This 91-nucleotide RNA from Zea mays belongs to the Rfam family "Small nucleolar RNA R16". The family's RNA type in Rfam is C/D-box small nucleolar RNA. Its family is annotated with RNA processing and nucleolus in the Gene Ontology. NCBI's taxonomy places the organism under Eukaryota, Viridiplantae, Tracheophyta, Poales, Zea.
[Rfam]
RNA sequence: GACGGCAAGCGAUGUGCAAAACUUUAUCCUACACACUUAAUGGAAUUACUGCCAUGUGUGGACUAAUCUCCGCUUAUUAUCUGAUGCUUUU
Numbered sequence: 001g002a003c004g005g006c007a008a009g010c011g012a013u014g015u016g017c018a019a020a021a022c023u024u025u026a027u028c029c030u031a032c033a034c035a036c037u038u039a040a041u042g043g044a045a046u047u048a049c050u051g052c053c054a055u056g057u058g059u060g061g062a063c064u065a066a067u068c069u070c071c072g073c074u075u076a077u078u079a080u081c082u083g084a085u086g087c088u089u090u091u
Base pairs, nucleotide, nucleotide: 004088005087006086007085